The family of this 91-nucleotide RNA from Streptomyces sp. 136MFCol5.1 is "sodF sRNA". For this family Rfam cites "Inverse regulation of Fe- and Ni-containing SOD genes by a Fur family regulator Nur through small RNA processed from 3'UTR of the sodF mRNA" (Kim et al., Nucleic Acids Res, 2014). The base pairs follow the family's consensus structure. The match comes from Rfam's covariance-model search (88 bits). The source organism's lineage runs through Bacteria, Bacillati, Actinomycetes, Streptomycetaceae and Streptomyces. By type it is a small RNA.
RNA sequence: ACGCCCUGCCUCGUGAUCGUCUUCUCAACCUUCACCGGCAGGCGGAUGAAACGGGGAGCCCCCGCGAGGACGUGACUCGCCGGGGCUCCCC
Numbered sequence: 001a002c003g004c005c006c007u008g009c010c011u012c013g014u015g016a017u018c019g020u021c022u023u024c025u026c027a028a029c030c031u032u033c034a035c036c037g038g039c040a041g042g043c044g045g046a047u048g049a050a051a052c053g054g055g056g057a058g059c060c061c062c063c064g065c066g067a068g069g070a071c072g073u074g075a076c077u078c079g080c081c082g083g084g085g086c087u088c089c090c091c
Stems, first nucleotide, its partner, number of pairs: 002044002005042006013035004019029002053091010064080005